[Rfam]
RNA sequence: UUCCUCGGGUGAUGAUAAAUUGAAUUUUACAGUUAUCCCUGUCUGAUGCUUCCAUCUGCUGACAAUUCAUCUCAAAUCUGACGAUGAA
Numbered sequence: 001u002u003c004c005u006c007g008g009g010u011g012a013u014g015a016u017a018a019a020u021u022g023a024a025u026u027u028u029a030c031a032g033u034u035a036u037c038c039c040u041g042u043c044u045g046a047u048g049c050u051u052c053c054a055u056c057u058g059c060u061g062a063c064a065a066u067u068c069a070u071c072u073c074a075a076a077u078c079u080g081a082c083g084a085u086g087a088a
Base pairs, nucleotide, nucleotide: 001088002087003086005084006083007082